[Rfam]
RNA: SAM riboswitch aptamer (S box leader)
Organism: Anditalea andensis
RNA sequence: GAUUUAUAAAGAAGAGGUGAGAGAUUAGGCUCCCAGACCCUCUGGCAACCGCCCUUGACGUAGGAGAGGUGCCAAUACCUACCCAAAAAGCCGGGAACUAUAAAUU
Numbered sequence: 001g002a003u004u005u006a007u008a009a010a011g012a013a014g015a016g017g018u019g020a021g022a023g024a025u026u027a028g029g030c031u032c033c034c035a036g037a038c039c040c041u042c043u044g045g046c047a048a049c050c051g052c053c054c055u056u057g058a059c060g061u062a063g064g065a066g067a068g069g070u071g072c073c074a075a076u077a078c079c080u081a082c083c084c085a086a087a088a089a090g091c092c093g094g095g096a097a098c099u100a101u102a103a104a105u106u
Stems, first nucleotide, its partner, number of pairs: 001106008013043005021032003026081004044073004049069002052064002082095003